[Rfam]
RNA: Microsporidia small subunit ribosomal RNA, nucleotides 1 to 481
RNA sequence: CACCAGGUUGAUUCUGCCUGACGUGGAUGCUAGUCUCUAAAGUUAAGCCAUGGAUGUCUAAGCAAAGCGUAAGUCGAGCGGCACAGGCUCAGUAACGGGCGAAUAUUUAAUCUCCUCGAGUGGAUAUCCUCUGUAACCGGAGGGCAAAACACAGGACGUGCAGUUGUAUAAGGAUUGUUCGUUUAACAUUAGUGGGGGAGAGUAAGACGCCAGUCCAUCAGUUAGUAAGUAGGGUAAGGGCCUACUUAGACGAAUACGGAUACGGGGAAUUAUCGUUUGAUUCCGGAGAGGGAGCCUGAGAGACGGCUACCGGGUCCAAGGACAACAGCAGGCGCGAAAAUUACCGCAGCCUGCAUUCAGGUCGGUAGUAAGGAGACGUGUAAACGAUGUGCAGGUAAAGAAUGCACUGUAUACAGGAGGACAAGACUGGUGCCAGCACCCGCUGUAAUACCAGCUCCUGGAGUGUCUAUGAUGAUUGCUG
Numbered sequence: 001c002a003c004c005a006g007g008u009u010g011a012u013u014c015u016g017c018c019u020g021a022c023g024u025g026g027a028u029g030c031u032a033g034u035c036u037c038u039a040a041a042g043u044u045a046a047g048c049c050a051u052g053g054a055u056g057u058c059u060a061a062g063c064a065a066a067g068c069g070u071a072a073g074u075c076g077a078g079c080g081g082c083a084c085a086g087g088c089u090c091a092g093u094a095a096c097g098g099g100c101g102a103a104u105a106u107u108u109a110a111u112c113u114c115c116u117c118g119a120g121u122g123g124a125u126a127u128c129c130u131c132u133g134u135a136a137c138c139g140g141a142g143g144g145c146a147a148a149a150c151a152c153a154g155g156a157c158g159u160g161c162a163g164u165u166g167u168a169u170a171a172g173g174a175u176u177g178u179u180c181g182u183u184u185a186a187c188a189u190u191a192g193u194g195g196g197g198g199a200g201a202g203u204a205a206g207a208c209g210c211c212a213g214u215c216c217a218u219c220a221g222u223u224a225g226u227a228a229g230u231a232g233g234g235u236a237a238g239g240g241c242c243u244a245c246u247u248a249g250a251c252g253a254a255u256a257c258g259g260a261u262a263c264g265g266g267g268a269a270u271u272a273u274c275g276u277u278u279g280a281u282u283c284c285g286g287a288g289a290g291g292g293a294g295c296c297u298g299a300g301a302g303a304c305g306g307c308u309a310c311c312g313g314g315u316c317c318a319a320g321g322a323c324a325a326c327a328g329c330a331g332g333c334g335c336g337a338a339a340a341u342u343a344c345c346g347c348a349g350c351c352u353g354c355a356u357u358c359a360g361g362u363c364g365g366u367a368g369u370a371a372g373g374a375g376a377c378g379u380g381u382a383a384a385c386g387a388u389g390u391g392c393a394g395g396u397a398a399a400g401a402a403u404g405c406a407c408u409g410u411a412u413a414c415a416g417g418a419g420g421a422c423a424a425g426a427c428u429g430g431u432g433c434c435a436g437c438a439c440c441c442g443c444u445g446u447a448a449u450a451c452c453a454g455c456u457c458c459u460g461g462a463g464u465g466u467c468u469a470u471g472a473u474g475a476u477u478g479c480u481g
Stems, first nucleotide, its partner, number of pairs: 004020005022471010033377006040369001047333003051330002056082002062079002067074002088288003096213001098211004106205002111201007120152003127144007214260003221251003226248008263285004267278004290311002293308003314323003341367001343366003349362005389407005414460006427454004436443002